RNA: RNase MRP
Organism: Betta splendens
RNA sequence: GGGCAUUCAGAAAACUUGCACUCUGGGCUACACACUGAGAACCCGUUUCUCUACACCCGCCCAGGGGAAAGUCCCCGGACACGUGGCAGAAAGUGCCGCUGGUGAGAACCAGCGUUGACCGUCGCGCCGCCGUCAUGAAGCUAAGACGUUCUCCCGAACCGAGCUCGGUGGUCGCCGGUCGACCUUGUCAGCGUUGAUAGAUAUGCAAGUAGGCUGCACGCAGCCGAACACAAUGGGGCUUAUUCUCCGAAUGCA
Numbered sequence: 001g002g003g004c005a006u007u008c009a010g011a012a013a014a015c016u017u018g019c020a021c022u023c024u025g026g027g028c029u030a031c032a033c034a035c036u037g038a039g040a041a042c043c044c045g046u047u048u049c050u051c052u053a054c055a056c057c058c059g060c061c062c063a064g065g066g067g068a069a070a071g072u073c074c075c076c077g078g079a080c081a082c083g084u085g086g087c088a089g090a091a092a093g094u095g096c097c098g099c100u101g102g103u104g105a106g107a108a109c110c111a112g113c114g115u116u117g118a119c120c121g122u123c124g125c126g127c128c129g130c131c132g133u134c135a136u137g138a139a140g141c142u143a144a145g146a147c148g149u150u151c152u153c154c155c156g157a158a159c160c161g162a163g164c165u166c167g168g169u170g171g172u173c174g175c176c177g178g179u180c181g182a183c184c185u186u187g188u189c190a191g192c193g194u195u196g197a198u199a200g201a202u203a204u205g206c207a208a209g210u211a212g213g214c215u216g217c218a219c220g221c222a223g224c225c226g227a228a229c230a231c232a233a234u235g236g237g238g239c240u241u242a243u244u245c246u247c248c249g250a251a252u253g254c255a
Stems, first nucleotide, its partner, number of pairs: 003254006010247002014210006022065007037051005069241003073238004085097004098113006115182003119178003122174001127171004139165003148159004212225005